[Rfam]
RNA: epsC RNA
RNA sequence: AGGUUAUGCCUACUACACCUCUAUCAGGGUAGGUACUCGGUCAUGCUGUGGGUAUGUAGUGUACCUUAGACGUGGAUCGUCGAUGGCGUGGUGAUGAGGUUGGGUUAAAUGCCCU
Numbered sequence: 001a002g003g004u005u006a007u008g009c010c011u012a013c014u015a016c017a018c019c020u021c022u023a024u025c026a027g028g029g030u031a032g033g034u035a036c037u038c039g040g041u042c043a044u045g046c047u048g049u050g051g052g053u054a055u056g057u058a059g060u061g062u063a064c065c066u067u068a069g070a071c072g073u074g075g076a077u078c079g080u081c082g083a084u085g086g087c088g089u090g091g092u093g094a095u096g097a098g099g100u101u102g103g104g105u106u107a108a109a110u111g112c113c114c115u
Base pairs, nucleotide, nucleotide: 001020002019003018004017007035008034009033010032011031012030013029036098037097038096039095040092041091042090043089044088045087046086047085050066051065052064053063054062055061069081070080071079072078102114103113104112105111